MIR1120/MIR1122 microRNA precursor family: an 87-nucleotide RNA sequence from Triticum aestivum. Its family is annotated with miRNA-mediated post-transcriptional gene silencing and RISC complex in the Gene Ontology. Pairs were carried over by alignment from the consensus structure, which was predicted with RNAalifold. Rfam 15.1 lists 44,765 matches to the family in 8 species. A search with the family's covariance model found it, with a score of 92 bits.
RNA sequence: CUACUCCCUCCGUCUCAAAAUGUAAGACGUUUUUUCAUACUACCAGAGUGUGAAAAAAUGUCUUACAUUUUGGGACGGAGGGAGUAG
Numbered sequence: 001c002u003a004c005u006c007c008c009u010c011c012g013u014c015u016c017a018a019a020a021u022g023u024a025a026g027a028c029g030u031u032u033u034u035u036c037a038u039a040c041u042a043c044c045a046g047a048g049u050g051u052g053a054a055a056a057a058a059u060g061u062c063u064u065a066c067a068u069u070u071u072g073g074g075a076c077g078g079a080g081g082g083a084g085u086a087g
Stems, first nucleotide, its partner, number of pairs: 003085003007081005013075005019069023
A reference for the family is Yao et al. (2007), "Cloning and characterization of microRNAs from wheat (Triticum aestivum L.)", Genome Biol.